[Rfam]
RNA: Small nucleolar RNA SNORA84
RNA sequence: GCCCGGUGGUUGCUGGGCCCUGCUGUGCCGUGCAGUGCCUCAGUUGGUGCCGAGGGCCGACAGUGACACUGUGAGUCACGCGUGGAGUCUGUGAUCCCUGAGCAGCCCCCACAGCCCGCUCACAGUCACACCC
Numbered sequence: 001g002c003c004c005g006g007u008g009g010u011u012g013c014u015g016g017g018c019c020c021u022g023c024u025g026u027g028c029c030g031u032g033c034a035g036u037g038c039c040u041c042a043g044u045u046g047g048u049g050c051c052g053a054g055g056g057c058c059g060a061c062a063g064u065g066a067c068a069c070u071g072u073g074a075g076u077c078a079c080g081c082g083u084g085g086a087g088u089c090u091g092u093g094a095u096c097c098c099u100g101a102g103c104a105g106c107c108c109c110c111a112c113a114g115c116c117c118g119c120u121c122a123c124a125g126u127c128a129c130a131c132c133c
Stems, first nucleotide, its partner, number of pairs: 001058001003056002007049002010046001012044006020035004069125001071123006080115002082112004087107001089105004